[Rfam]
RNA sequence: UAAAUGUUAGAAAUACGAGCUAAUAUAAGUUCAGAAUUUGGCUGAACGUCUCUACCAACUGCCGCUAAGAGUUGACUAUUGGAACGUCUAUAAAGUGC
Numbered sequence: 001u002a003a004a005u006g007u008u009a010g011a012a013a014u015a016c017g018a019g020c021u022a023a024u025a026u027a028a029g030u031u032c033a034g035a036a037u038u039u040g041g042c043u044g045a046a047c048g049u050c051u052c053u054a055c056c057a058a059c060u061g062c063c064g065c066u067a068a069g070a071g072u073u074g075a076c077u078a079u080u081g082g083a084a085c086g087u088c089u090a091u092a093a094a095g096u097g098c
Stems, first nucleotide, its partner, number of pairs: 020082006029047006056074005
This 98-nucleotide RNA sequence from Pseudobdellovibrio exovorus belongs to the Rfam family "Purine riboswitch aptamer". On this family, see Mandal et al., Cell 2003: "Riboswitches Control Fundamental Biochemical Pathways in Bacillus subtilis and Other Bacteria". The organism belongs to Pseudobdellovibrio exovorus, within Bacteria. The match comes from Rfam's covariance-model search (54 bits).